[Rfam]
RNA sequence: UAAUAUGCGUUAGGGAUUGAAGCGGCAUCUUUUUCUAUUUUUGUUCAUAUGAUGUAGCGCUCAAGUUGCUUAAUAGAAAAAAUACAGCUGAAAGCCCGCCCGAAC
Numbered sequence: 001u002a003a004u005a006u007g008c009g010u011u012a013g014g015g016a017u018u019g020a021a022g023c024g025g026c027a028u029c030u031u032u033u034u035c036u037a038u039u040u041u042u043g044u045u046c047a048u049a050u051g052a053u054g055u056a057g058c059g060c061u062c063a064a065g066u067u068g069c070u071u072a073a074u075a076g077a078a079a080a081a082a083u084a085c086a087g088c089u090g091a092a093a094g095c096c097c098g099c100c101c102g103a104a105c
Stems, first nucleotide, its partner, number of pairs: 013097003017093002022088002027083002030080001033078007
Flavo-1 RNA: a 105-nucleotide sequence from Maribacter sp. ACAM166. It scores 43 bits against the family's covariance model. Taxonomically the source falls in Maribacter (Bacteria, Bacteroidota, Flavobacteriia, Flavobacteriaceae).